[Rfam]
RNA sequence: UGAGUAAAUGGGAUAGUCGCGGAUACAAUAGCCGAAAGGCAGUAUCUGAGGAAAGUCCGAGCUCCAUAGGGCAGGGUGCUGGGUAAUACCCAGUGGGGGUGACCCCAAGGAAAGUGCCACAGAAAUAAACCGCCUUAAGUUUACCUUAAGGUAAGGGUGGAACGGUGCGGUAAGAGCGCACCAGCAGUUAGGCGACUAACUGGCUAGGUAAACCCCACCUGGAGCAAGACCAAGUAGGAGGGAUAUAGGAGUGGCCCGCUCUCCCUCGGGUAAGGUCGCUUGAGGUGUUAGGCAACUAACAUCCUAGAUAGAUGACUAUCACUUUUCCUUUGGAAAAGUACAGAACUCGGCUUACAAGUUUACUCAAAAU
Numbered sequence: 001u002g003a004g005u006a007a008a009u010g011g012g013a014u015a016g017u018c019g020c021g022g023a024u025a026c027a028a029u030a031g032c033c034g035a036a037a038g039g040c041a042g043u044a045u046c047u048g049a050g051g052a053a054a055g056u057c058c059g060a061g062c063u064c065c066a067u068a069g070g071g072c073a074g075g076g077u078g079c080u081g082g083g084u085a086a087u088a089c090c091c092a093g094u095g096g097g098g099g100u101g102a103c104c105c106c107a108a109g110g111a112a113a114g115u116g117c118c119a120c121a122g123a124a125a126u127a128a129a130c131c132g133c134c135u136u137a138a139g140u141u142u143a144c145c146u147u148a149a150g151g152u153a154a155g156g157g158u159g160g161a162a163c164g165g166u167g168c169g170g171u172a173a174g175a176g177c178g179c180a181c182c183a184g185c186a187g188u189u190a191g192g193c194g195a196c197u198a199a200c201u202g203g204c205u206a207g208g209u210a211a212a213c214c215c216c217a218c219c220u221g222g223a224g225c226a227a228g229a230c231c232a233a234g235u236a237g238g239a240g241g242g243a244u245a246u247a248g249g250a251g252u253g254g255c256c257c258g259c260u261c262u263c264c265c266u267c268g269g270g271u272a273a274g275g276u277c278g279c280u281u282g283a284g285g286u287g288u289u290a291g292g293c294a295a296c297u298a299a300c301a302u303c304c305u306a307g308a309u310a311g312a313u314g315a316c317u318a319u320c321a322c323u324u325u326u327c328c329u330u331u332g333g334a335a336a337a338g339u340a341c342a343g344a345a346c347u348c349g350g351c352u353u354a355c356a357a358g359u360u361u362a363c364u365c366a367a368a369a370u
Base pairs, nucleotide, nucleotide: 001366002365003364004363005362006361007360008359009358011355012320013319014318015317016316017315018314020048021047022046023045024044025043026042053353054352055351057350058349059348060347061346062224063223064222065221069257070256071255072254074220075219076218077217078216079093080092081091082090083089094108095106096105097104098103109215110214114213115212116209117208118207130156131155132152133151134150135149136148137147138146139145164182165181166180167179168178169177184204185202186201187200188199189198190197191196228277229276230275231274238267239266240265241264242263243262249261250260251259252258284303285302286301287300288299289298290297291296